[Rfam]
Shown here is a 57-nucleotide RNA, a member of the family "Glutamine-II riboswitch aptamer". The base pairs follow the family's consensus structure, which is taken from published work. Its family is annotated with glutamine binding in the Gene Ontology.
RNA sequence: GUCCGUUCAUCCCGCAAGGGACGCAUGACAUGAGGUGACAUGGAACGGGGUCCCUCA
Numbered sequence: 001g002u003c004c005g006u007u008c009a010u011c012c013c014g015c016a017a018g019g020g021a022c023g024c025a026u027g028a029c030a031u032g033a034g035g036u037g038a039c040a041u042g043g044a045a046c047g048g049g050g051u052c053c054c055u056c057a
Stems, first nucleotide, its partner, number of pairs: 004047005010021004031057005037052003